[Rfam]
Shown here is a 102-nucleotide RNA from Clostridium senegalense, a member of the family "TPP riboswitch aptamer (THI element)". Vitamin B(1) in its active form thiamin pyrophosphate (TPP) is an essential coenzyme that is synthesised by coupling of pyrimidine and thiazole moieties in bacteria. Gene Ontology term of the family: thiamine pyrophosphate binding. Taxonomically the source falls in Clostridium (Bacteria, Bacillati, Bacillota, Clostridiaceae).

RNA sequence: AUAAUUAGCUAGGGGUGCUAUUAAAGCUGAGAGGUAUUGAUAUACUAACCCUUGAACCUGAAAUUGGAUAAUACCAGCGUAGGAAAGCGUUAUUAAAACGAA
Numbered sequence: 001a002u003a004a005u006u007a008g009c010u011a012g013g014g015g016u017g018c019u020a021u022u023a024a025a026g027c028u029g030a031g032a033g034g035u036a037u038u039g040a041u042a043u044a045c046u047a048a049c050c051c052u053u054g055a056a057c058c059u060g061a062a063a064u065u066g067g068a069u070a071a072u073a074c075c076a077g078c079g080u081a082g083g084a085a086a087g088c089g090u091u092a093u094u095a096a097a098a099c100g101a102a
Stems, first nucleotide, its partner, number of pairs: 008088003011052004017027003034045004057083004064077004